[Rfam]
RNA sequence: GCGAGACAGGGGGGCGGAUGGCCGAGUGCGACCGAUAAACUGUUCUCGGACGACGCCGGGCGCAGCCUCCGUCCCGUCCGCCAAUGAUCAGCCAGCAGCCGCUGCAACCCCAGGGAG
Number, nucleotide and partner (000 for none) at each position: 001g000002c000003g000004a000005g000006a000007c000008a000009g000010g000011g000012g000013g000014g000015c000016g000017g000018a000019u000020g000021g000022c000023c000024g000025a000026g000027u000028g000029c000030g000031a000032c000033c000034g000035a000036u000037a000038a000039a000040c000041u000042g000043u000044u000045c000046u000047c000048g079049g078050a077051c076052g075053a000054c000055g000056c000057c071058g070059g069060g068061c000062g000063c000064a000065g000066c000067c000068u060069c059070c058071g057072u000073c000074c000075c052076g051077u050078c049079c048080g000081c000082c000083a000084a000085u000086g000087a000088u000089c000090a000091g000092c000093c104094a103095g102096c101097a000098g000099c000100c000101g096102c095103u094104g093105c000106a000107a000108c000109c000110c000111c000112a000113g000114g000115g000116a000117g000
This 117-nucleotide RNA belongs to the Rfam family "Streptomyces-metK RNA". It is annotated as a small RNA. The sequence is in the family's curated seed alignment.